The record is a 72-nucleotide sequence from Geotrypetes seraphini, which matches "Small nucleolar RNA SNORD99" in Rfam. Pairs were carried over by alignment from the consensus structure, which was predicted with RNAalifold. It is annotated as a C/D-box small nucleolar RNA.
RNA sequence: GCUGGUCUAUGAUGACGCCUUACUAGUGGUGACUGAUGGAUGAAUCCUGCGGAUAUGGGGCUGAGACCAUUC
Number, nucleotide and partner (000 for none) at each position: 001g071002c000003u069004g068005g067006u000007c000008u000009a000010u000011g000012a000013u000014g000015a000016c000017g000018c000019c000020u000021u000022a000023c000024u000025a000026g000027u000028g000029g000030u000031g000032a000033c000034u000035g000036a000037u000038g000039g000040a000041u000042g000043a000044a000045u000046c000047c000048u000049g000050c000051g000052g000053a000054u000055a000056u000057g000058g000059g000060g000061c000062u000063g000064a000065g000066a000067c005068c004069a003070u000071u001072c000
Clan: SNORD58 clan. Its family is annotated with RNA processing and nucleolus in the Gene Ontology. The family has 23 seed sequences and 673 matches in Rfam 15.1.